A member of the RNA family "U11 spliceosomal RNA" from Scyliorhinus torazame, 135 nucleotides long. It is annotated as a spliceosomal small nuclear RNA. Rfam links the family to the GO terms pre-mRNA 5'-splice site binding, U11 snRNP and mRNA 5'-splice site recognition. The base pairs follow the family's consensus structure, which is taken from published work.
[Rfam]
RNA sequence: UAAAAGGGUUUCUGCUGUGAGUAGCACAUGGACGAGGCUCUUGGGCUUCAUCCGUGCGGAAUCGAUAGCAAGAGAUUUCGGAAGCACAAUUUUUGCAACUUGGGGCUGCUGGUGAUCGUUUGUCUCGGCGCUCCC
Numbered sequence: 001u002a003a004a005a006g007g008g009u010u011u012c013u014g015c016u017g018u019g020a021g022u023a024g025c026a027c028a029u030g031g032a033c034g035a036g037g038c039u040c041u042u043g044g045g046c047u048u049c050a051u052c053c054g055u056g057c058g059g060a061a062u063c064g065a066u067a068g069c070a071a072g073a074g075a076u077u078u079c080g081g082a083a084g085c086a087c088a089a090u091u092u093u094u095g096c097a098a099c100u101u102g103g104g105g106c107u108g109c110u111g112g113u114g115a116u117c118g119u120u121u122g123u124c125u126c127g128g129c130g131c132u133c134c135c
Base pairs, nucleotide, nucleotide: 008085009084010083011082012081013026014025015024016023017022027056028055029054030053031052032051034049035048036047037046038045057080058079059078060077061076062075063074103133104132105131106130108129109128110127111126112125114124115123116122